[Rfam]
RNA sequence: AAUCAAAUAUUUCUCCGAGCCUGUCAAACCUAAGCCAAAGGUAUGGUUGCCAGGCCCUUAGGGUACAUUGGAAAACUAGUGUGCCUCCCAUUGUGGAAAGGAGAGUAUGGCUUUUUGAA
Numbered sequence: 001a002a003u004c005a006a007a008u009a010u011u012u013c014u015c016c017g018a019g020c021c022u023g024u025c026a027a028a029c030c031u032a033a034g035c036c037a038a039a040g041g042u043a044u045g046g047u048u049g050c051c052a053g054g055c056c057c058u059u060a061g062g063g064u065a066c067a068u069u070g071g072a073a074a075a076c077u078a079g080u081g082u083g084c085c086u087c088c089c090a091u092u093g094u095g096g097a098a099a100g101g102a103g104a105g106u107a108u109g110g111c112u113u114u115u116u117g118a119a
Stems, first nucleotide, its partner, number of pairs: 011105006019055005025049002028047003034042003061086011087096002
A member of the RNA family "Molybdenum/Tungsten riboswitch aptamer (Moco RNA motif)" from Sporotomaculum syntrophicum, 119 nucleotides long. The organism belongs to Sporotomaculum, within Bacteria.